[Rfam]
RNA: RAGATH-8 RNA
RNA sequence: UAAAGAACAGCAAGCAGGAAACGCAGGGUAAACCGAUAGGGCUGCACGCAAGUAACAUGGUAGUUAUGCUUUAGGUCGGAACGGACUGGUUGACAGACGGAGCGUGUGAAGAAUAGGCAACCCGGCAAAACGUACUGAAAAUUGCAUCCAUCCAUUGAAGAGUGGCAAAGCGGAAAGUAGCUGAAUAAGCGUUGGAAAUCCAGGGGGCUAUACCAAAGUCCGCCGCAAGAUGAGGAAGCUGGAACGAAUGAACAGGUACUAAGCGAGAGGACACAGCACUGUUCUUUA
Number, nucleotide and partner (000 for none) at each position: 001u288002a287003a286004a285005g284006a283007a282008c281009a280010g279011c000012a000013a000014g000015c000016a000017g000018g000019a000020a000021a000022c000023g000024c125025a000026g123027g122028g121029u120030a000031a000032a000033c000034c000035g000036a000037u000038a000039g000040g000041g000042c000043u000044g107045c106046a105047c104048g103049c102050a000051a000052g000053u066054a065055a064056c063057a000058u000059g000060g000061u000062a000063g056064u055065u054066a053067u000068g000069c096070u095071u000072u093073a000074g000075g000076u000077c000078g000079g000080a000081a000082c000083g000084g000085a000086c000087u000088g000089g000090u000091u000092g000093a072094c000095a070096g069097a000098c000099g000100g000101a000102g049103c048104g047105u046106g045107u044108g000109a000110a000111g000112a000113a000114u000115a000116g000117g000118c000119a000120a029121c028122c027123c026124g000125g024126c000127a000128a000129a000130a000131c000132g259133u258134a257135c256136u255137g000138a000139a000140a000141a000142u247143u246144g000145c000146a000147u243148c242149c241150a240151u000152c238153c232154a231155u230156u229157g000158a000159a000160g000161a000162g226163u225164g224165g223166c000167a000168a000169a000170g000171c203172g000173g201174a000175a000176a000177g000178u000179a000180g000181c000182u000183g000184a000185a000186u000187a000188a000189g000190c000191g000192u000193u000194g000195g000196a000197a000198a000199u000200c000201c173202a000203g171204g000205g221206g220207g219208c218209u217210a000211u000212a000213c000214c000215a000216a000217a209218g208219u207220c206221c205222g000223c165224c164225g163226c162227a000228a000229g156230a155231u154232g153233a000234g000235g000236a000237a000238g152239c000240u150241g149242g148243a147244a000245c000246g143247a142248a000249u000250g000251a000252a000253c000254a000255g136256g135257u134258a133259c132260u000261a000262a000263g000264c000265g000266a000267g000268a000269g000270g000271a000272c000273a000274c000275a000276g000277c000278a000279c010280u009281g008282u007283u006284c005285u004286u003287u002288a001